Rfam assigns this 69-nucleotide RNA from Mohoua ochrocephala to the family "Small nucleolar RNA SNORD63". The family has 23 seed sequences and 795 matches in Rfam 15.1. It is annotated as a C/D-box small nucleolar RNA. It scores 55 bits against the family's covariance model. Rfam's curators write: snoRNA U63 is found in both humans and mice.
RNA sequence: GUGCCAUGAUGUUAAACUGUCAACACAUCAUUCUGAAGAAUUGUGUGGAGGCUUUGUGAACUGAGCACC
Numbered sequence: 001g002u003g004c005c006a007u008g009a010u011g012u013u014a015a016a017c018u019g020u021c022a023a024c025a026c027a028u029c030a031u032u033c034u035g036a037a038g039a040a041u042u043g044u045g046u047g048g049a050g051g052c053u054u055u056g057u058g059a060a061c062u063g064a065g066c067a068c069c
Base pairs, nucleotide, nucleotide: 001068002067003066004065